[Rfam]
RNA sequence: AUAAUGAUACUUCGACUUGGCUUAAUAUGAUGUUGAGGAGUCGCUCGGUUGGUAACGGAGAGGUGAAAUUCCUAUGU
Numbered sequence: 001a002u003a004a005u006g007a008u009a010c011u012u013c014g015a016c017u018u019g020g021c022u023u024a025a026u027a028u029g030a031u032g033u034u035g036a037g038g039a040g041u042c043g044c045u046c047g048g049u050u051g052g053u054a055a056c057g058g059a060g061a062g063g064u065g066a067a068a069u070u071c072c073u074a075u076g077u
Stems, first nucleotide, its partner, number of pairs: 012074001013043006044060003048056003061073003

A member of the RNA family "pemK RNA", 77 nucleotides long.